[Rfam]
Nucleotides: 035
Base pairs, nucleotide, nucleotide: 002021003020004019005018010034011033012032
Number, partner (000 for none) and nucleotide at each position: 001000u002021a003020g004019g005018c006000g007000u008000a009000a010034c011033c012032u013000g014000a015000a016000a017000a018005g019004c020003c021002u022000c023000a024000a025000c026000a027000g028000a029000g030000u031000a032012a033011g034010g035000a